[Rfam]
RNA sequence: UCUCCCGCUAUACCUCCCUGAGCGGGUGCCUUGAGCAAGCAAGGCAUUUUUGGCCCCCGGCGAUCCCCUUGCCGGGGGUUUUUUAU
Number, nucleotide and partner (000 for none) at each position: 001u000002c000003u000004c026005c025006c024007g023008c022009u021010a000011u000012a000013c000014c000015u000016c000017c000018c000019u000020g000021a009022g008023c007024g006025g005026g004027u000028g045029c044030c043031u042032u041033g040034a000035g000036c000037a000038a000039g000040c033041a032042a031043g030044g029045c028046a000047u000048u000049u000050u000051u000052g000053g000054c078055c077056c076057c075058c074059g073060g072061c071062g070063a069064u000065c000066c000067c000068c000069u063070u062071g061072c060073c059074g058075g057076g056077g055078g054079u000080u000081u000082u000083u000084u000085a000086u000
Burkholderia RNA 7 (anti-hemB): an 86-nucleotide RNA sequence from Zoogloea oleivorans. Rfam 15.1 lists 479 matches to the family in 458 species. Rfam classes the family as a small RNA. From the family's description: This RNA motif was identified by computational search in b-proteobacteria Burkholderia. Co-purified with Hfq, expression confirmed by Northern blot. It scores 71 bits against the family's covariance model.